[Rfam]
RNA sequence: GUAAAAGAAAGGUUCUUGUUUCCUUUUGUGAACGAGAUUCUUAUAAACUUCAUGCAAAUUUGCUUUCAUUGUUAUUGGGUGAACCUCUAGACUUUCUUGGUGAAUGAAAUGAUUGAAGGUUCAGUAAAUGAUGCCACACAU
Numbered sequence: 001g002u003a004a005a006a007g008a009a010a011g012g013u014u015c016u017u018g019u020u021u022c023c024u025u026u027u028g029u030g031a032a033c034g035a036g037a038u039u040c041u042u043a044u045a046a047a048c049u050u051c052a053u054g055c056a057a058a059u060u061u062g063c064u065u066u067c068a069u070u071g072u073u074a075u076u077g078g079g080u081g082a083a084c085c086u087c088u089a090g091a092c093u094u095u096c097u098u099g100g101u102g103a104a105u106g107a108a109a110u111g112a113u114u115g116a117a118g119g120u121u122c123a124g125u126a127a128a129u130g131a132u133g134c135c136a137c138a139c140a141u
Base pairs, nucleotide, nucleotide: 005050006049007048012039015036016035017034018033067133068132069131070130071129072128073127080123081122082121083120084119085118086117
RNA: Small nucleolar RNA snoR74